[Rfam]
RNA sequence: CGCUCUCGGCCAGAACGUGCUGUUUCACUCUCUUUCCAAAGUGCUUUUCAUCUUUCGCUCACGCUACUUGUGCGCUAUCGGUCUCCGGCCUGUAUUUAGCUUUAGAAGGAGUAUACCUCCCAUUUUGAGCAGAUAAAGGUGCCGGGAAUGUGGCCCCCCACGGGGGGUGUUAUAGCCCGCGCGCGCAAUGCCGCCGCCGGGGACCGAGGUCCGCGCCCUCGUGGCUAGGACGCUGGCAUAAUGGCCGUCAGUGACCCGUCUUGAAACACGG
Numbered sequence: 001c002g003c004u005c006u007c008g009g010c011c012a013g014a015a016c017g018u019g020c021u022g023u024u025u026c027a028c029u030c031u032c033u034u035u036c037c038a039a040a041g042u043g044c045u046u047u048u049c050a051u052c053u054u055u056c057g058c059u060c061a062c063g064c065u066a067c068u069u070g071u072g073c074g075c076u077a078u079c080g081g082u083c084u085c086c087g088g089c090c091u092g093u094a095u096u097u098a099g100c101u102u103u104a105g106a107a108g109g110a111g112u113a114u115a116c117c118u119c120c121c122a123u124u125u126u127g128a129g130c131a132g133a134u135a136a137a138g139g140u141g142c143c144g145g146g147a148a149u150g151u152g153g154c155c156c157c158c159c160a161c162g163g164g165g166g167g168u169g170u171u172a173u174a175g176c177c178c179g180c181g182c183g184c185g186c187a188a189u190g191c192c193g194c195c196g197c198c199g200g201g202g203a204c205c206g207a208g209g210u211c212c213g214c215g216c217c218c219u220c221g222u223g224g225c226u227a228g229g230a231c232g233c234u235g236g237c238a239u240a241a242u243g244g245c246c247g248u249c250a251g252u253g254a255c256c257c258g259u260c261u262u263g264a265a266a267c268a269c270g271g
Base pairs, nucleotide, nucleotide: 001253002252003251004250007247008246009245010244011243012242017075021074022073023072025070027068079235080234081233082232084230085229256271257270258269259268
RNA: Eukaryotic large subunit ribosomal RNA, nucleotides 424 to 694